[Rfam]
RNA: mir-71 microRNA precursor family
Organism: Dolichomitus sp. PSUC_FEM 10030005
RNA sequence: UCCGCGUGAAAGACAUGGGUAGUGAGAUGAUCCUAGCGCAACUUGCGUCUCACUACCUUGUCUUUCAUGUGGCG
Numbered sequence: 001u002c003c004g005c006g007u008g009a010a011a012g013a014c015a016u017g018g019g020u021a022g023u024g025a026g027a028u029g030a031u032c033c034u035a036g037c038g039c040a041a042c043u044u045g046c047g048u049c050u051c052a053c054u055a056c057c058u059u060g061u062c063u064u065u066c067a068u069g070u071g072g073c074g
Stems, first nucleotide, its partner, number of pairs: 008066008017058003021054009
Dot-bracket structure: .......((((((((.(((.(((((((((................))))))))).)))))))))))........